[Rfam]
RNA sequence: CUCCCCGAAAGCUAUUUAGGUAGCGCCUCGUGAAUGAUUACUGGGGGUAGAGCACUGUUUCGGCUAGGGGGCUGUCAUGGCUUACCAAACCGAUGCAAACUCCGAAUACCGGCUAAUUGAAUCACGGGAGACACACGGCGGGUGCUAACGUCCGUCGUGAAGAGGGAAACAACCCAGACCGCCAGCUAAGGUCCCCAAGUUAUGAUUAAGUGGGAAACGAUGUGGGAAGGCAUAGACAGCCAGGAGGUUGGCUUAGAAGCAGCCACCCUUUAAAGAAAGCGUAAUAGCUCACUGGUCGAGUCGGCCUGCGCGGAAGAUGUAACGGGGCUAAAAUCAUACACCGAAGCUGCGGAUGUGCACUAUGUGCACGUGGUAGGGGAGCGUUCUGUAAGCUGAUGAAGGUGCACUGAGAAGUGUGCUGGAGGUAUCAGAAGUGCGAAU
Numbered sequence: 001c002u003c004c005c006c007g008a009a010a011g012c013u014a015u016u017u018a019g020g021u022a023g024c025g026c027c028u029c030g031u032g033a034a035u036g037a038u039u040a041c042u043g044g045g046g047g048u049a050g051a052g053c054a055c056u057g058u059u060u061c062g063g064c065u066a067g068g069g070g071g072c073u074g075u076c077a078u079g080g081c082u083u084a085c086c087a088a089a090c091c092g093a094u095g096c097a098a099a100c101u102c103c104g105a106a107u108a109c110c111g112g113c114u115a116a117u118u119g120a121a122u123c124a125c126g127g128g129a130g131a132c133a134c135a136c137g138g139c140g141g142g143u144g145c146u147a148a149c150g151u152c153c154g155u156c157g158u159g160a161a162g163a164g165g166g167a168a169a170c171a172a173c174c175c176a177g178a179c180c181g182c183c184a185g186c187u188a189a190g191g192u193c194c195c196c197a198a199g200u201u202a203u204g205a206u207u208a209a210g211u212g213g214g215a216a217a218c219g220a221u222g223u224g225g226g227a228a229g230g231c232a233u234a235g236a237c238a239g240c241c242a243g244g245a246g247g248u249u250g251g252c253u254u255a256g257a258a259g260c261a262g263c264c265a266c267c268c269u270u271u272a273a274a275g276a277a278a279g280c281g282u283a284a285u286a287g288c289u290c291a292c293u294g295g296u297c298g299a300g301u302c303g304g305c306c307u308g309c310g311c312g313g314a315a316g317a318u319g320u321a322a323c324g325g326g327g328c329u330a331a332a333a334u335c336a337u338a339c340a341c342c343g344a345a346g347c348u349g350c351g352g353a354u355g356u357g358c359a360c361u362a363u364g365u366g367c368a369c370g371u372g373g374u375a376g377g378g379g380a381g382c383g384u385u386c387u388g389u390a391a392g393c394u395g396a397u398g399a400a401g402g403u404g405c406a407c408u409g410a411g412a413a414g415u416g417u418g419c420u421g422g423a424g425g426u427a428u429c430a431g432a433a434g435u436g437c438g439a440a441u
Base pairs, nucleotide, nucleotide: 001381002380003379004378005377006376011024012023013022014021015020026130027128028127029126030125031124032123033122035121036118037117038116039115040114041112042111043110044109050103051101052100056097057096058095060093061092062091063090067086068085069083070082071081072080073079134159135158136157137156138155139154140153141152142151143150164175165174166173179352180351181350182349184348185347186346190342191341192340199339201338202337203336204335205334206333218312219311222309223308224307225306226305229302230301231300239296240295241294242293243292245269246268247267250264251263252262270274275290279288280287353371354370355369356368357367358366359365360364382436384433385432386431387430388429392426393425394424401420402419403418404417405416406415407414408413